Notes:
A member of the RNA family "mir-7563 microRNA precursor family" from Ameiurus melas, 76 nucleotides long.
RNA sequence: ACCGCGUACUUACCGUCUGUAUAGUAGCCGAGAUACGUGUAUUUCUCCUACUGUAUAGCAGGUAAGUACGCGGUUU
Numbered sequence: 001a002c003c004g005c006g007u008a009c010u011u012a013c014c015g016u017c018u019g020u021a022u023a024g025u026a027g028c029c030g031a032g033a034u035a036c037g038u039g040u041a042u043u044u045c046u047c048c049u050a051c052u053g054u055a056u057a058g059c060a061g062g063u064a065a066g067u068a069c070g071c072g073g074u075u076u
Stems, first nucleotide, its partner, number of pairs: 001074014017058011030045002033042003
NCBI's taxonomy places the organism under Eukaryota, Opisthokonta, Eumetazoa, Deuterostomia, Ameiurus. The base pairs follow the family's consensus structure, which was predicted with RNAalifold. It scores 83 bits against the family's covariance model.